[Rfam]
RNA sequence: CAACAGUCGAAAGGAGGUGAUCCAGUGUCUCAUUGUCAUCAAUCGCGAGCGACGGCCGCGAGCCUGGGCCUCGGUAAGGCCCUGGUCUGAUCCUUUCAGACUGGUUUUGCGGCCUGAUCGUCAGCGAUCAGGCAAUGAAGGGCCGUCGGAGCGAUCCGGCGGCCCU
Numbered sequence: 001c002a003a004c005a006g007u008c009g010a011a012a013g014g015a016g017g018u019g020a021u022c023c024a025g026u027g028u029c030u031c032a033u034u035g036u037c038a039u040c041a042a043u044c045g046c047g048a049g050c051g052a053c054g055g056c057c058g059c060g061a062g063c064c065u066g067g068g069c070c071u072c073g074g075u076a077a078g079g080c081c082c083u084g085g086u087c088u089g090a091u092c093c094u095u096u097c098a099g100a101c102u103g104g105u106u107u108u109g110c111g112g113c114c115u116g117a118u119c120g121u122c123a124g125c126g127a128u129c130a131g132g133c134a135a136u137g138a139a140g141g142g143c144c145g146u147c148g149g150a151g152c153g154a155u156c157c158g159g160c161g162g163c164c165c166u
Stems, first nucleotide, its partner, number of pairs: 016023002031137007044060002047057001050054001082104002087099004118127003139166012
RNA: caulobacter sRNA CC2171
Organism: Brevundimonas sp. SH203